The family of this 67-nucleotide sequence from Clonorchis sinensis is "mir-71 microRNA precursor family". Its family is annotated with RISC complex and miRNA-mediated post-transcriptional gene silencing in the Gene Ontology. Pairs were carried over by alignment from the consensus structure, which was predicted with RNAalifold.
RNA sequence: GCGCUGUGAAAGACGAUGGUAGUGAGAUGAUGAGUUUCCAUCUCCCUACCCCGUCUUUUCCGGCGUG
Numbered sequence: 001g002c003g004c005u006g007u008g009a010a011a012g013a014c015g016a017u018g019g020u021a022g023u024g025a026g027a028u029g030a031u032g033a034g035u036u037u038c039c040a041u042c043u044c045c046c047u048a049c050c051c052c053g054u055c056u057u058u059u060c061c062g063g064c065g066u067g
Base pairs, nucleotide, nucleotide: 008059009058010057011056012055013054014053015052018050019049021047022046024044025043026042027041028040029039